[Rfam]
RNA sequence: UCACCGGCGGUCUCUAAUUCGCUUGGUGCAGGUCGGGAACCGAUUUGGCCUCAAUUCAACGUUUUAUCCAGAUGGCGGCCUGUGAUUGGUUAUGGCUUUCAAAUAUUAAGUUGAAAGCGAGAAUUGGAUCCCGCCUUGCAUCAACUGAAUCGGAGACCGAGGUGAAA
Numbered sequence: 001u002c003a004c005c006g007g008c009g010g011u012c013u014c015u016a017a018u019u020c021g022c023u024u025g026g027u028g029c030a031g032g033u034c035g036g037g038a039a040c041c042g043a044u045u046u047g048g049c050c051u052c053a054a055u056u057c058a059a060c061g062u063u064u065u066a067u068c069c070a071g072a073u074g075g076c077g078g079c080c081u082g083u084g085a086u087u088g089g090u091u092a093u094g095g096c097u098u099u100c101a102a103a104u105a106u107u108a109a110g111u112u113g114a115a116a117g118c119g120a121g122a123a124u125u126g127g128a129u130c131c132c133g134c135c136u137u138g139c140a141u142c143a144a145c146u147g148a149a150u151c152g153g154a155g156a157c158c159g160a161g162g163u164g165a166a167a
Base pairs, nucleotide, nucleotide: 013154014153017150018149019148020147023144024143025142026141027140028139029138030137031136032135034133035132036131037130038129040127041126042125043124044123045122046121

The family of this 167-nucleotide RNA from Cephalotus follicularis is "MIR168 microRNA precursor family". The source organism's lineage runs through Eukaryota, Streptophytina, Magnoliopsida, Mesangiospermae and Cephalotus.